Description:
mir-135 microRNA precursor family: an 85-nucleotide sequence from Carassius auratus. Lineage of the source: Eukaryota > Opisthokonta > Bilateria > Cyprinidae > Carassius.
[Rfam]
RNA sequence: CUGCUGUUGUGUCUUAUGGCUUUUUAUUCCUAUGUGAAGUUGAACAAAGCUCAUGUAGGGAUAUAAGCCACUAAACACACAGUGA
Numbered sequence: 001c002u003g004c005u006g007u008u009g010u011g012u013c014u015u016a017u018g019g020c021u022u023u024u025u026a027u028u029c030c031u032a033u034g035u036g037a038a039g040u041u042g043a044a045c046a047a048a049g050c051u052c053a054u055g056u057a058g059g060g061a062u063a064u065a066a067g068c069c070a071c072u073a074a075a076c077a078c079a080c081a082g083u084g085a
Base pairs, nucleotide, nucleotide: 002084003083004082005081006080007079009078010077011076012075014073017070018069019068020067021066022065026062027061028060029059030058031057032056033055034054035053036052037051
Its family is annotated with gene silencing by miRNA and RISC complex in the Gene Ontology.